[Rfam]
RNA sequence: CCGCCGAGAUGACGACCCGAACUCUCUCUUUCUGACCCCCGCAUGGAGAAACCUCUUCACAACCCUCUGAGCGGC
Numbered sequence: 001c002c003g004c005c006g007a008g009a010u011g012a013c014g015a016c017c018c019g020a021a022c023u024c025u026c027u028c029u030u031u032c033u034g035a036c037c038c039c040c041g042c043a044u045g046g047a048g049a050a051a052c053c054u055c056u057u058c059a060c061a062a063c064c065c066u067c068u069g070a071g072c073g074g075c
Base pairs, nucleotide, nucleotide: 001074002073003072004071
Dot-bracket structure: ((((..................................................................)))).
Annotation:
A member of the RNA family "Small nucleolar RNA SNORD26" from Meleagris gallopavo, 75 nucleotides long. For this family Rfam cites "A mammalian gene with introns instead of exons generating stable RNA products" (Tycowski et al., Nature, 1996). Pairs were carried over by alignment from the consensus structure, which was predicted with PFOLD. The source organism's lineage runs through Eukaryota, Opisthokonta, Bilateria, Dipnotetrapodomorpha and Meleagris. It scores 44 bits against the family's covariance model. The family's RNA type in Rfam is C/D-box small nucleolar RNA. Its Rfam clan is "SNORD26 clan".